[Rfam]
Nucleotides: 093
Stems, first nucleotide, its partner, number of pairs: 001014005030060004036052006062083007
Number, partner (000 for none) and nucleotide at each position: 001014u002013g003012a004011c005010c006000u007000u008000c009000g010005g011004g012003u013002c014001a015000c016000c017000u018000a019000g020000c021000c022000a023000a024000c025000u026000g027000a028000c029000g030060u031059u032058g033057u034000u035000a036052g037051u038050g039049g040048a041047c042000u043000c044000a045000u046000u047041g048040u049039u050038c051037a052036c053000a054000a055000a056000c057033g058032u059031a060030g061000g062083c063082c064081a065080g066079u067078a068077g069000a070000a071000c072000a073000u074000u075000u076000a077068c078067u079066a080065c081064u082063g083062g084000c085000u086000g087000u088000u089000u090000u091000u092000u093000u